Annotation: Small nucleolar RNA Z119: a 95-nucleotide sequence from Triticum urartu. Rfam links the family to the GO terms nucleolus and RNA processing.
RNA sequence: GCUUGGAGAUGAGGAUCAUCAGAGGCUGUUUCUGAGGAUGUGCCUAGAGCUUGUCCUGUGUUGCACAUUGACUGAUUUGCCUAUCUGAUCCAAAG
Numbered sequence: 001g002c003u004u005g006g007a008g009a010u011g012a013g014g015a016u017c018a019u020c021a022g023a024g025g026c027u028g029u030u031u032c033u034g035a036g037g038a039u040g041u042g043c044c045u046a047g048a049g050c051u052u053g054u055c056c057u058g059u060g061u062u063g064c065a066c067a068u069u070g071a072c073u074g075a076u077u078u079g080c081c082u083a084u085c086u087g088a089u090c091c092a093a094a095g
Stems, first nucleotide, its partner, number of pairs: 003093005039053002042050002063080003067076001
It scores 73 bits against the family's covariance model.
Taxonomically the source falls in Triticum (Eukaryota, Streptophyta, Embryophyta, Poales).